Small nucleolar RNA SNORA8: a 138-nucleotide sequence from Castor canadensis.
From the family's description: ACA8 is a member of the H/ACA class of snoRNA that guide the sites of modification of uridines to pseudouridines.
The family's RNA type in Rfam is H/ACA-box small nucleolar RNA.
Pairs were carried over by alignment from the consensus structure, which was predicted with RNAfold.
Its Rfam clan is "SNORA8 clan".
Rfam links the family to the GO terms RNA processing and nucleolus.
It scores 106 bits against the family's covariance model.
[Rfam]
RNA sequence: UGUCUUUGUGAUAUCUGCACUCGGCAGUUUAUUACUGCUGGUGUGUUCAAAGGGCAGUGCCAUAGAAACUGAGUAUCUGGAAUCAUUGGUUUUCUUGGCUUUGUGCAUGUUAAACCUGGUAUUUCUAUCAAUAAGGUA
Numbered sequence: 001u002g003u004c005u006u007u008g009u010g011a012u013a014u015c016u017g018c019a020c021u022c023g024g025c026a027g028u029u030u031a032u033u034a035c036u037g038c039u040g041g042u043g044u045g046u047u048c049a050a051a052g053g054g055c056a057g058u059g060c061c062a063u064a065g066a067a068a069c070u071g072a073g074u075a076u077c078u079g080g081a082a083u084c085a086u087u088g089g090u091u092u093u094c095u096u097g098g099c100u101u102u103g104u105g106c107a108u109g110u111u112a113a114a115c116c117u118g119g120u121a122u123u124u125c126u127a128u129c130a131a132u133a134a135g136g137u138a
Stems, first nucleotide, its partner, number of pairs: 002060002004057002014053003017046004022041001023039005063127006070119001072117002080106001082104002